The family of this 91-nucleotide RNA sequence from Paraburkholderia caballeronis is "Glycine riboswitch aptamer".

RNA sequence: GAACGCAGCAGGGGAGAGACCGUCGCAACGUGACGGCGCCGACGGAGCAACCGCCCCGGAAACUCUCAGGCAAAAGGACCGUGCUGCCGGA
Numbered sequence: 001g002a003a004c005g006c007a008g009c010a011g012g013g014g015a016g017a018g019a020c021c022g023u024c025g026c027a028a029c030g031u032g033a034c035g036g037c038g039c040c041g042a043c044g045g046a047g048c049a050a051c052c053g054c055c056c057c058g059g060a061a062a063c064u065c066u067c068a069g070g071c072a073a074a075a076g077g078a079c080c081g082u083g084c085u086g087c088c089g090g091a
Stems, first nucleotide, its partner, number of pairs: 006086005012080002020036004038071003041067002045065003051059002
Taxonomically the source falls in Paraburkholderia (Bacteria, Pseudomonadati, Betaproteobacteria, Burkholderiales).